[Rfam]
RNA sequence: AAAUGAAAGCAGAAGCACCCGCUUCUCGCCUGAGUGAAUAAAUUGCUGGGCAGAAUAGGAUUCCGACUAAUUGAUUAGCUGGGGUACGCGCGGGUUCUUGUAGAAGAACUCGUUUUUUUAUUGCCAU
Dot-bracket structure: ..........((((((....)))))).(((...((((.....))))..)))......................................(((((((((......)))))))))..............
This 127-nucleotide RNA sequence from Enterococcus saccharolyticus belongs to the Rfam family "Ribosomal protein L20 leader".
Rfam classes the family as a cis-regulatory leader.
The literature on the family includes a 1994 paper in Prog Nucleic Acid Res Mol Biol by Zengel and Lindahl, "Diverse mechanisms for regulating ribosomal protein synthesis in Escherichia coli".
From the family's description: This family is a putative r-protein leader autoregulatory structure found in B. subtilis and other low-GC Gram-positive bacteria. It is located in the 5' untranslated regions of mRNAs encoding initiation factor 3 followed by ribosomal proteins L35 and L20 (infC-rpmI-rplT). A Rho-independent transcription terminator structure that is probably involved in regulation is included at the 3' end.
The source organism's lineage runs through Bacteria, Bacillati, Bacilli, Lactobacillales and Enterococcus saccharolyticus subsp. saccharolyticus.